[Rfam]
RNA: Fungal signal recognition particle RNA
RNA sequence: ACGCUGUAACGGCAUGGUAGAACUGAACACCUUGGGAUUUCUGGCCUGGGAACGAAACUUCUCUGCGGUUAGGCAAAGUUAGCACGUCGCGUCAAACGACGCGACAAGGAACCAUUUGGUUCUGCACUUUGAUCAAUUUCAAUCGUCUUUUCGUUUUAAACGAAACUCUGUGGCUCCUAAACGAGCAAAGGUGUCCCGAUUUAACCCAUAAAUCGAUCUUUGCGGGGUUGCAUAUCCGUGCCGAUAUGAGAAAUCUGUCCGGUCACGGUAGCGGCAAUGCAGUUAAACGAUCCCUUAAACCGGACGUUUGUCCUUACCGCUGUUAGGGGAGCUUCAUCCAGCGACAGCAAGGACCUCCCGUGACGGAGGCGGUCGGGAUAGCACCUGACGGGGCAUUAAAGGGGCGAUGGGUUGAUAAUUACCCUCCUUUGUGGUGGGAUGCUUGCAUUCCAGGGGUGUUCGAAGUGAACUACCAAAUAUCUU
Numbered sequence: 001a002c003g004c005u006g007u008a009a010c011g012g013c014a015u016g017g018u019a020g021a022a023c024u025g026a027a028c029a030c031c032u033u034g035g036g037a038u039u040u041c042u043g044g045c046c047u048g049g050g051a052a053c054g055a056a057a058c059u060u061c062u063c064u065g066c067g068g069u070u071a072g073g074c075a076a077a078g079u080u081a082g083c084a085c086g087u088c089g090c091g092u093c094a095a096a097c098g099a100c101g102c103g104a105c106a107a108g109g110a111a112c113c114a115u116u117u118g119g120u121u122c123u124g125c126a127c128u129u130u131g132a133u134c135a136a137u138u139u140c141a142a143u144c145g146u147c148u149u150u151u152c153g154u155u156u157u158a159a160a161c162g163a164a165a166c167u168c169u170g171u172g173g174c175u176c177c178u179a180a181a182c183g184a185g186c187a188a189a190g191g192u193g194u195c196c197c198g199a200u201u202u203a204a205c206c207c208a209u210a211a212a213u214c215g216a217u218c219u220u221u222g223c224g225g226g227g228u229u230g231c232a233u234a235u236c237c238g239u240g241c242c243g244a245u246a247u248g249a250g251a252a253a254u255c256u257g258u259c260c261g262g263u264c265a266c267g268g269u270a271g272c273g274g275c276a277a278u279g280c281a282g283u284u285a286a287a288c289g290a291u292c293c294c295u296u297a298a299a300c301c302g303g304a305c306g307u308u309u310g311u312c313c314u315u316a317c318c319g320c321u322g323u324u325a326g327g328g329g330a331g332c333u334u335c336a337u338c339c340a341g342c343g344a345c346a347g348c349a350a351g352g353a354c355c356u357c358c359c360g361u362g363a364c365g366g367a368g369g370c371g372g373u374c375g376g377g378a379u380a381g382c383a384c385c386u387g388a389c390g391g392g393g394c395a396u397u398a399a400a401g402g403g404g405c406g407a408u409g410g411g412u413u414g415a416u417a418a419u420u421a422c423c424c425u426c427c428u429u430u431g432u433g434g435u436g437g438g439a440u441g442c443u444u445g446c447a448u449u450c451c452a453g454g455g456g457u458g459u460u461c462g463a464a465g466u467g468a469a470c471u472a473c474c475a476a477a478u479a480u481c482u483u
Base pairs, nucleotide, nucleotide: 001015003013004012016474017473018472019471020470025461026460027459028458029457030456031455034424035423036422037420039418139411140410142408143407144406145405146404147403148402149165150164151163152162153161154160155159182390183389189386190385191384192383193382194381195377196376197375198374199373200372201371217367218366219365220363221362223360224359225358226357231273233271236268237267238266239265240264241261243259244258245257246256248255249254282288283287310354311353312352313351314350319348320347321346322345323344328339329338330337